Rfam assigns this 146-nucleotide RNA sequence to the family "Bacteriophage Diversity-Generating Retroelement RNA".
For this family Rfam cites "RNA control of reverse transcription in a diversity-generating retroelement" (Handa et al., Nature, 2025).
The family's RNA type in Rfam is small RNA.
Rfam's curators put it in the seed alignment.
RNA sequence: GCUGCGUUGGCCAGAUGGCGCGCAGCCCGAUCAAGGUCGGUGGUCAGCCCGCCUGUCCUGCCUCGGCGAACACCUUACGCGAUCCGGUAGAACGGGGCGUAGCACGGGCGCGGCGCGCAGCACCCGUGUCGAGACCCGAGGCCGGU
Numbered sequence: 001g002c003u004g005c006g007u008u009g010g011c012c013a014g015a016u017g018g019c020g021c022g023c024a025g026c027c028c029g030a031u032c033a034a035g036g037u038c039g040g041u042g043g044u045c046a047g048c049c050c051g052c053c054u055g056u057c058c059u060g061c062c063u064c065g066g067c068g069a070a071c072a073c074c075u076u077a078c079g080c081g082a083u084c085c086g087g088u089a090g091a092a093c094g095g096g097g098c099g100u101a102g103c104a105c106g107g108g109c110g111c112g113g114c115g116c117g118c119a120g121c122a123c124c125c126g127u128g129u130c131g132a133g134a135c136c137c138g139a140g141g142c143c144g145g146u
Stems, first nucleotide, its partner, number of pairs: 002025006011018002059068003082146001084145005093138004102130001103128006